[Rfam]
RNA: Fluoride riboswitch aptamer (crcB RNA motif)
RNA sequence: GCAUAAAAUGGGAAUGGGGUUCUCCCAAAGUUUAUAAACCGCCUUAAAGGCUGAUGACUCCUAUCACAAA
Numbered sequence: 001g002c003a004u005a006a007a008a009u010g011g012g013a014a015u016g017g018g019g020u021u022c023u024c025c026c027a028a029a030g031u032u033u034a035u036a037a038a039c040c041g042c043c044u045u046a047a048a049g050g051c052u053g054a055u056g057a058c059u060c061c062u063a064u065c066a067c068a069a070a
Stems, first nucleotide, its partner, number of pairs: 010026004016061006041051003